Rfam assigns this 51-nucleotide sequence from Stutzerimonas nosocomialis to the family "Guanidine-II riboswitch aptamer (mini-ykkC)". Simpler in structure and has fewer highly conserved nucleotide positions than the ykkC-yxkD leader. Despite this each of its two stem-loop structures directly bind free guanidine. Therefore, mini-ykkC RNA motif represents a distinct class of guanidine-sensing RNAs. Its crystal structure was also determined.

[Rfam]
RNA sequence: CGCCGAGGACGACCUCACCCCAGCGCGGGACAUUCUUCCGGGACGGCCCGG
Numbered sequence: 001c002g003c004c005g006a007g008g009a010c011g012a013c014c015u016c017a018c019c020c021c022a023g024c025g026c027g028g029g030a031c032a033u034u035c036u037u038c039c040g041g042g043a044c045g046g047c048c049c050g051g
Stems, first nucleotide, its partner, number of pairs: 002019001005016004038051005